[Rfam]
RNA sequence: UUACGUUCACUUCGUUGUCCAACGAAGCGCAGUCCGACUCAGGCCAUGGAACGGGGACCUGAG
Numbered sequence: 001u002u003a004c005g006u007u008c009a010c011u012u013c014g015u016u017g018u019c020c021a022a023c024g025a026a027g028c029g030c031a032g033u034c035c036g037a038c039u040c041a042g043g044c045c046a047u048g049g050a051a052c053g054g055g056g057a058c059c060u061g062a063g
Base pairs, nucleotide, nucleotide: 004053005052006051007050008049010027011026012025013024014023038063039062040061041060042059043058044056045055
RNA: Glutamine-II riboswitch aptamer